[Rfam]
RNA sequence: AAAGGAGCAAAAACCAAUUUCUUGAUAGAACAAGAAAUUGGUUUUUGCUCCUUUAUUU
Numbered sequence: 001a002a003a004g005g006a007g008c009a010a011a012a013a014c015c016a017a018u019u020u021c022u023u024g025a026u027a028g029a030a031c032a033a034g035a036a037a038u039u040g041g042u043u044u045u046u047g048c049u050c051c052u053u054u055a056u057u058u
Stems, first nucleotide, its partner, number of pairs: 001054014019036006

This 58-nucleotide RNA from Cornus volkensii belongs to the Rfam family "Plastid-psbA-3 3UTR RNA". Lineage of the source: Eukaryota > Tracheophyta > eudicotyledons > asterids > Cornus. Pairs were carried over by alignment from the consensus structure, which was predicted with LocARNA. Plastid psbA-3 is a non-coding RNA (ncRNA) present in plastids.